[Rfam]
RNA sequence: GUGCUUUUGGGAAGAAGACGUCCCUCAUAUGUAACUUAUCCAUCUGUUCACUUUGUCAGCUCUCUAUUUCAAUAUUUUGCUGAUCAUUUAAUGAUGGAAUAUUU
Numbered sequence: 001g002u003g004c005u006u007u008u009g010g011g012a013a014g015a016a017g018a019c020g021u022c023c024c025u026c027a028u029a030u031g032u033a034a035c036u037u038a039u040c041c042a043u044c045u046g047u048u049c050a051c052u053u054u055g056u057c058a059g060c061u062c063u064c065u066a067u068u069u070c071a072a073u074a075u076u077u078u079g080c081u082g083a084u085c086a087u088u089u090a091a092u093g094a095u096g097g098a099a100u101a102u103u104u
Stems, first nucleotide, its partner, number of pairs: 039098006055084006
The family of this 104-nucleotide RNA sequence from Cicer arietinum is "Small nucleolar RNA snoR99".
It is annotated as an H/ACA-box small nucleolar RNA.
The match comes from Rfam's covariance-model search (88 bits).